Rfam assigns this 153-nucleotide RNA sequence to the family "IMES-5 RNA".
Pairs were carried over by alignment from the consensus structure, which is taken from published work.
It is one of the family's seed sequences.
[Rfam]
RNA sequence: UAUUUCAGAAAGAAUUGGGACCUCGAGACCCCAAAUCAGGAAGAAAAUGGACGGAGGAAGAGGGGUGAAAAAAGUUAUUUUUUAACGAUUUGUGAGCCGAAAAGGGGUAUUGCCCAUACAGUGAGAAACCCCGCACUGGCCCUUUCAAUUUCG
Numbered sequence: 001u002a003u004u005u006c007a008g009a010a011a012g013a014a015u016u017g018g019g020a021c022c023u024c025g026a027g028a029c030c031c032c033a034a035a036u037c038a039g040g041a042a043g044a045a046a047a048u049g050g051a052c053g054g055a056g057g058a059a060g061a062g063g064g065g066u067g068a069a070a071a072a073a074g075u076u077a078u079u080u081u082u083u084a085a086c087g088a089u090u091u092g093u094g095a096g097c098c099g100a101a102a103a104g105g106g107g108u109a110u111u112g113c114c115c116a117u118a119c120a121g122u123g124a125g126a127a128a129c130c131c132c133g134c135a136c137u138g139g140c141c142c143u144u145u146c147a148a149u150u151u152c153g
Base pairs, nucleotide, nucleotide: 001049002048003047004046005045015034016033017032018031019030054152055151056150057149060146061145062144063143064142065141075085076084077083091118092117093116094115096113097112100111101110119138120137121136122135123134